This 136-nucleotide RNA sequence from Flavobacteriaceae bacterium EG-1 belongs to the Rfam family "SAM riboswitch aptamer (S box leader)". The match comes from Rfam's covariance-model search (63 bits). The base pairs follow the family's consensus structure, which is taken from published work. The family is grouped with related families in Rfam's "SAM clan".

RNA sequence: AAGUUAUCAAGAAAGGUGGAGGGAUUAGACCCUAUGAGACCUUAGCAACCCUUUGGUUUUUCUAUUUAAGAAUACCCGAGAAGGUGCUACAUUCUACUGAAAAAUGCUAUGUUUUUAGCUUUUCGGCAGAUAACAA
Dot-bracket structure: ..((((((....(((((...(((..[[[[)))......)))))((((.(((((........................)))..))))))...(]]]](.((((.................)))).)..)))))))..
Numbered sequence: 001a002a003g004u005u006a007u008c009a010a011g012a013a014a015g016g017u018g019g020a021g022g023g024a025u026u027a028g029a030c031c032c033u034a035u036g037a038g039a040c041c042u043u044a045g046c047a048a049c050c051c052u053u054u055g056g057u058u059u060u061u062c063u064a065u066u067u068a069a070g071a072a073u074a075c076c077c078g079a080g081a082a083g084g085u086g087c088u089a090c091a092u093u094c095u096a097c098u099g100a101a102a103a104a105u106g107c108u109a110u111g112u113u114u115u116u117a118g119c120u121u122u123u124c125g126g127c128a129g130a131u132a133a134c135a136a
Stems, first nucleotide, its partner, number of pairs: 003134006013043005021032003026096004044088004049084002051080003092128001097125001099123004